[Rfam]
RNA: Makes More Granules Regulator RNA (mmgR)
RNA sequence: UGUCGCUGUCUGCUUUCUUGGACGUUUCCUCCCUAAACUUGGCGGCACGAAAGUGCCGCUUUUUUUUUGCCUAU
Numbered sequence: 001u002g003u004c005g006c007u008g009u010c011u012g013c014u015u016u017c018u019u020g021g022a023c024g025u026u027u028c029c030u031c032c033c034u035a036a037a038c039u040u041g042g043c044g045g046c047a048c049g050a051a052a053g054u055g056c057c058g059c060u061u062u063u064u065u066u067u068u069g070c071c072u073a074u
Base pairs, nucleotide, nucleotide: 008023009022010021011020042059043058044057045056046055047054048053